[Rfam]
RNA: U2 spliceosomal RNA
Organism: Pleodorina starrii
RNA sequence: AUACCUUUCUCGGCCUUUUGGCUCAGAUCAUGUGUAGUAUCUGUUCUUAUAAGCUUAAUCGCUUAUAUGGUCCUCAUUGAGGACCUGCGAUUAACUUCAAUUUUUCUCGGGGGCGGGUCAAUGGGUGCGCUUGCGCACUCGACUCGCCAGCAUGGUUGCGGCCUUACACUACCGCGGCAGCCGUGCACCCGGC
Dot-bracket structure: .......(((.((((....)))).)))....................((((((........)))))).(((((((...)))))))...........................(((((((......((((....))))...)))))))..((((((.(((.((...........)).))).)))))).......